[Rfam]
Streptomyces sRNA scr5239: a 159-nucleotide RNA from Streptomyces sp. F-3. The match comes from Rfam's covariance-model search (166 bits).
RNA sequence: CCUCCGCCUUCUCCGCACAGGAAGGCGGACCGAGGACCCGGAGUUCUCUGCCCUGACUGCUCCGGUUCCUCGACCUUCGGCCGGUCGGGACCGCACACCCUACGGCCGAUGAUGCUCCGGGCUGCGGUGCCGGGAGGGUUGAGGGUCCCUCUCAGGCGC
Numbered sequence: 001c002c003u004c005c006g007c008c009u010u011c012u013c014c015g016c017a018c019a020g021g022a023a024g025g026c027g028g029a030c031c032g033a034g035g036a037c038c039c040g041g042a043g044u045u046c047u048c049u050g051c052c053c054u055g056a057c058u059g060c061u062c063c064g065g066u067u068c069c070u071c072g073a074c075c076u077u078c079g080g081c082c083g084g085u086c087g088g089g090a091c092c093g094c095a096c097a098c099c100c101u102a103c104g105g106c107c108g109a110u111g112a113u114g115c116u117c118c119g120g121g122c123u124g125c126g127g128u129g130c131c132g133g134g135a136g137g138g139u140u141g142a143g144g145g146u147c148c149c150u151c152u153c154a155g156g157c158g159c
Stems, first nucleotide, its partner, number of pairs: 003029004008024005032071005038065004043060002045056002077109007087100003113129004118124002132153007

Annotation: The organism belongs to Streptomyces, within Bacteria. By type it is a small RNA. A reference for the family is Vockenhuber et al. (2015), "Identification of metE as a second target of the sRNA scr5239 in Streptomyces coelicolor", PLoS One.